Source information:
Rfam assigns this 84-nucleotide sequence from Clostridium sp. AM58-1XD to the family "ZMP/ZTP riboswitch aptamer (pfl RNA motif)". The family's consensus secondary structure is taken from published work. The organism belongs to Clostridium, within Bacteria.
[Rfam]
RNA sequence: GAAAGGACGUGUGACUGACGGAUAAGUGGAAGAGACCACAGGGAGCACGUGGAAGCGUAAUAGUCGACCGUCUGGGCAUCCUUA
Numbered sequence: 001g002a003a004a005g006g007a008c009g010u011g012u013g014a015c016u017g018a019c020g021g022a023u024a025a026g027u028g029g030a031a032g033a034g035a036c037c038a039c040a041g042g043g044a045g046c047a048c049g050u051g052g053a054a055g056c057g058u059a060a061u062a063g064u065c066g067a068c069c070g071u072c073u074g075g076g077c078a079u080c081c082u083u084a
Stems, first nucleotide, its partner, number of pairs: 007050006015042002017072005026039004063077003